[Rfam]
Rfam assigns this 172-nucleotide RNA from Sinobacterium caligoides to the family "Lysine riboswitch aptamer". The organism belongs to Sinobacterium, within Bacteria. It scores 112 bits against the family's covariance model.

RNA sequence: CCCUGCAGUAGGGGUGCGACGAUGAUCAGUAAGCCUUUGUCGGGUGACUCCAAUGACAAGGGCUGAAAGGUAUCGCCGCCGAAGAGGCUCGCUGGUCAAAGCAACCCUCUGGAGACUGAUCCGAAUAGGAUAGCCUCUGUCACAGUCAUCACUGUGGAGCACUACUGAGUGG
Number, nucleotide and partner (000 for none) at each position: 001c000002c000003c000004u000005g000006c167007a166008g165009u164010a163011g162012g000013g000014g000015u000016g079017c078018g077019a000020c075021g074022a073023u072024g071025a000026u000027c000028a000029g000030u000031a000032a064033g063034c062035c061036u060037u059038u058039g057040u000041c000042g000043g000044g000045u000046g000047a000048c000049u000050c000051c000052a000053a000054u000055g000056a000057c039058a038059a037060g036061g035062g034063c033064u032065g000066a000067a000068a000069g000070g000071u024072a023073u022074c021075g020076c000077c018078g017079c016080c000081g000082a000083a110084g109085a108086g107087g106088c000089u104090c000091g102092c101093u100094g000095g000096u000097c000098a000099a000100a093101g092102c091103a000104a089105c000106c087107c086108u085109c084110u083111g138112g137113a136114g135115a000116c133117u132118g131119a000120u129121c128122c000123g000124a000125a000126u000127a000128g121129g120130a000131u118132a117133g116134c000135c114136u113137c112138u111139g000140u157141c156142a155143c154144a153145g152146u151147c000148a000149u000150c000151a146152c145153u144154g143155u142156g141157g140158a000159g000160c000161a000162c011163u010164a009165c008166u007167g006168a000169g000170u000171g000172g000